The family of this 116-nucleotide RNA sequence from Tetranychus urticae is "mir-10 microRNA precursor family". Lineage of the source: Eukaryota > Eumetazoa > Protostomia > Ecdysozoa > Tetranychus. The family has 36 seed sequences and 3,853 matches in Rfam 15.1. It scores 52 bits against the family's covariance model. Its family is annotated with miRNA-mediated post-transcriptional gene silencing and RISC complex in the Gene Ontology. On this family, see Ambros, Cell 2001: "microRNAs: tiny regulators with great potential".
[Rfam]
RNA sequence: UAACCUUCACCCGUAGAUCCGAAUUUGUGUAUAAAGAGUUUUCACUUACUCAUUUUUACUUGAAAAAUUGAAACUAAAUUGAACAUCACAAGUUUGUUUCUACGGGUCCAGGUUAA
Numbered sequence: 001u002a003a004c005c006u007u008c009a010c011c012c013g014u015a016g017a018u019c020c021g022a023a024u025u026u027g028u029g030u031a032u033a034a035a036g037a038g039u040u041u042u043c044a045c046u047u048a049c050u051c052a053u054u055u056u057u058a059c060u061u062g063a064a065a066a067a068u069u070g071a072a073a074c075u076a077a078a079u080u081g082a083a084c085a086u087c088a089c090a091a092g093u094u095u096g097u098u099u100c101u102a103c104g105g106g107u108c109c110a111g112g113u114u115a116a
Base pairs, nucleotide, nucleotide: 002114003113004112005111006110010106011105012104015101016100017099020096021095022094023093024092025091026090027089028088029087
Dot-bracket structure: .(((((...(((..(((..((((((((((.........................................................))))))))))..)))..)))...)))))..